[Rfam]
RNA sequence: GGAUCGAUGAAGAGUGCAAUUGUCUGAGGAUGCUGAGGGACUCAUUCCAGAUCACAAUCUGAGGUCC
Number, nucleotide and partner (000 for none) at each position: 001g067002g066003a065004u064005c063006g000007a000008u000009g000010a000011a000012g000013a000014g000015u000016g000017c000018a000019a000020u000021u000022g000023u000024c000025u000026g000027a000028g000029g000030a000031u000032g000033c000034u000035g000036a000037g000038g000039g000040a000041c000042u000043c000044a000045u000046u000047c000048c000049a000050g000051a000052u000053c000054a000055c000056a000057a000058u000059c000060u000061g000062a000063g005064g004065u003066c002067c001
The record is a 67-nucleotide sequence from Sciurus carolinensis, which matches "Small nucleolar RNA SNORD109A" in Rfam. The base pairs follow the family's consensus structure, which was predicted with WAR. A reference for the family is Runte et al. (2001), "The IC-SNURF-SNRPN transcript serves as a host for multiple small nucleolar RNA species and as an antisense RNA for UBE3A", Hum Mol Genet. The match comes from Rfam's covariance-model search (84 bits). Rfam's curators write: Humans have two copies of the SNORD109 gene, SNORD109A and SNORD109B. Lineage of the source: Eukaryota > Vertebrata > Theria > Sciuromorpha > Sciurus.